This 127-nucleotide sequence from Flexivirga oryzae belongs to the Rfam family "FMN riboswitch aptamer (RFN element)".
The base pairs follow the family's consensus structure, which is taken from published work.
Taxonomically the source falls in Flexivirga (Bacteria, Bacillati, Actinomycetes, Dermacoccaceae).
[Rfam]
RNA sequence: AACGUGCUCCGGGGUCGGUGAAAUUCCGAGCCGGCGGUGAUAGUCCGCGACCCGACUGCUUCGGCAGCCGGUUGACCUGGUGGAACUCCAGGACCGACGGUUAAAGUCCGGAUGGGAGGCGCACGUG
Numbered sequence: 001a002a003c004g005u006g007c008u009c010c011g012g013g014g015u016c017g018g019u020g021a022a023a024u025u026c027c028g029a030g031c032c033g034g035c036g037g038u039g040a041u042a043g044u045c046c047g048c049g050a051c052c053c054g055a056c057u058g059c060u061u062c063g064g065c066a067g068c069c070g071g072u073u074g075a076c077c078u079g080g081u082g083g084a085a086c087u088c089c090a091g092g093a094c095c096g097a098c099g100g101u102u103a104a105a106g107u108c109c110g111g112a113u114g115g116g117a118g119g120c121g122c123a124c125g126u127g
Stems, first nucleotide, its partner, number of pairs: 003125005009119002016028003030107002032096002034048004043094002052071002076092005098110003